[Rfam]
RNA: Guanidine-II riboswitch aptamer (mini-ykkC)
Organism: Kryptolebias marmoratus
Nucleotides: 053
Base pairs, nucleotide, nucleotide: 001020002019004017005016007014008013040053041052042051043050044049
Number, partner (000 for none) and nucleotide at each position: 001020c002019c003000u004017g005016c006000u007014g008013g009000a010000c011000g012000a013008c014007c015000u016005g017004c018000u019002g020001g021000a022000c023000g024000a025000c026000c027000u028000g029000u030000u031000g032000g033000a034000c035000g036000a037000c038000c039000u040053g041052c042051a043050g044049g045000a046000c047000g048000a049044c050043c051042u052041g053040c